[Rfam]
RNA: c-di-GMP-I riboswitch aptamer
RNA sequence: GUAGGAUAAUGGCAAAAUUGAUGAAAAUCAAUGACGCAAAGCUAUAGGGACUAAGUUAGAGUAAUCUAAUAGGUUAGCCAGUUGCCGGU
Numbered sequence: 001g002u003a004g005g006a007u008a009a010u011g012g013c014a015a016a017a018u019u020g021a022u023g024a025a026a027a028u029c030a031a032u033g034a035c036g037c038a039a040a041g042c043u044a045u046a047g048g049g050a051c052u053a054a055g056u057u058a059g060a061g062u063a064a065u066c067u068a069a070u071a072g073g074u075u076a077g078c079c080a081g082u083u084g085c086c087g088g089u
Stems, first nucleotide, its partner, number of pairs: 012037002017032006040083004047079002049075003056069004
Dot-bracket structure: ...........((...((((((....))))))...))..((((...(((((....((((......))))...)))..))))))......